[Rfam]
RNA sequence: GUUAUCCUUCGGGGUCAGGUGAAAAUCCUAACCGGCGGUGGUGAAUAAUGAUUGUAUUCUAAGCCCGCGACCCGCAUGUCUUUACUGAGAUGCGGUUGAUCAAGUUUGAAUCUUGAGCCGACAGUUAAAGUCUGGAUGGGAGAAGGAUCAG
Numbered sequence: 001g002u003u004a005u006c007c008u009u010c011g012g013g014g015u016c017a018g019g020u021g022a023a024a025a026u027c028c029u030a031a032c033c034g035g036c037g038g039u040g041g042u043g044a045a046u047a048a049u050g051a052u053u054g055u056a057u058u059c060u061a062a063g064c065c066c067g068c069g070a071c072c073c074g075c076a077u078g079u080c081u082u083u084a085c086u087g088a089g090a091u092g093c094g095g096u097u098g099a100u101c102a103a104g105u106u107u108g109a110a111u112c113u114u115g116a117g118c119c120g121a122c123a124g125u126u127a128a129a130g131u132c133u134g135g136a137u138g139g140g141a142g143a144a145g146g147a148u149c150a151g
Stems, first nucleotide, its partner, number of pairs: 004148007017029003031131002033120002035068004063118002072095004100116005122134003
RNA: FMN riboswitch aptamer (RFN element)
Organism: Priestia filamentosa